RNA sequence: UUUCUAGCUCGCAUUGCAAGCUCUUGCCGAUUCGCUGACAACCUUCCCCUUUGUCAGACAUCGGAUCGGACAGGGCUCGGGAUGCGAGAUGGACACUCC
Number, nucleotide and partner (000 for none) at each position: 001u000002u000003u000004c000005u000006a000007g000008c000009u000010c086011g085012c084013a083014u082015u081016g000017c000018a000019a077020g000021c075022u074023c073024u072025u000026g000027c069028c068029g067030a066031u065032u064033c063034g062035c057036u056037g055038a054039c053040a052041a051042c000043c000044u000045u000046c000047c000048c000049c000050u000051u041052u040053g039054u038055c037056a036057g035058a000059c000060a000061u000062c034063g033064g032065a031066u030067c029068g028069g027070a000071c000072a024073g023074g022075g021076c000077u019078c000079g000080g000081g015082a014083u013084g012085c011086g010087a000088g000089a000090u000091g000092g000093a000094c000095a000096c000097u000098c000099c000
This 99-nucleotide RNA sequence belongs to the Rfam family "mraW RNA". Rfam 15.1 lists 851 matches to the family in 821 species. The family's RNA type in Rfam is cis-regulatory element.